[Rfam]
RNA sequence: CCUUGAAGCACGCCUGGCGGGAGCGGGGGACCCACUUACGACCGACCGGCACGCCGGUCUCGGGGUGAAGUCCUGACGCGUCGCCCCAGACGCGCCCGGGCAGGGUGACCCUUCCACCCCAACCCGACAGCUAACCCCGCAGGCGUCAGGAGCCACC
Numbered sequence: 001c002c003u004u005g006a007a008g009c010a011c012g013c014c015u016g017g018c019g020g021g022a023g024c025g026g027g028g029g030a031c032c033c034a035c036u037u038a039c040g041a042c043c044g045a046c047c048g049g050c051a052c053g054c055c056g057g058u059c060u061c062g063g064g065g066u067g068a069a070g071u072c073c074u075g076a077c078g079c080g081u082c083g084c085c086c087c088a089g090a091c092g093c094g095c096c097c098g099g100g101c102a103g104g105g106u107g108a109c110c111c112u113u114c115c116a117c118c119c120c121a122a123c124c125c126g127a128c129a130g131c132u133a134a135c136c137c138c139g140c141a142g143g144c145g146u147c148a149g150g151a152g153c154c155a156c157c
Stems, first nucleotide, its partner, number of pairs: 001021002023140006033062001063125003071100003103119004
Record summary
A member of the RNA family "c-di-AMP riboswitch aptamer (ydaO/yuaA leader)" from Janibacter alkaliphilus, 157 nucleotides long. The organism belongs to Janibacter, within Bacteria.